[Rfam]
RNA sequence: AAAUUGGAUAAUUUGAAUACAGGGCCUCUCAAGAGUCCCGGUGCAUAAUUUUUGGAGAGCUUUUUGGGUUUUUUCUAAAAAGCUU
Numbered sequence: 001a002a003a004u005u006g007g008a009u010a011a012u013u014u015g016a017a018u019a020c021a022g023g024g025c026c027u028c029u030c031a032a033g034a035g036u037c038c039c040g041g042u043g044c045a046u047a048a049u050u051u052u053u054g055g056a057g058a059g060c061u062u063u064u065u066g067g068g069u070u071u072u073u074u075c076u077a078a079a080a081a082g083c084u085u
Base pairs, nucleotide, nucleotide: 022039023038024037026035027034028033058084059083060082061081062080063079064078065077066076067075068074
This 85-nucleotide RNA sequence from Panagrolaimus sp. ES5 belongs to the Rfam family "SmY spliceosomal RNA". The literature on the family includes a 2007 paper in RNA by MacMorris et al., "A novel family of C. elegans snRNPs contains proteins associated with trans-splicing". Lineage of the source: Eukaryota > Metazoa > Ecdysozoa > Panagrolaimoidea > Panagrolaimus.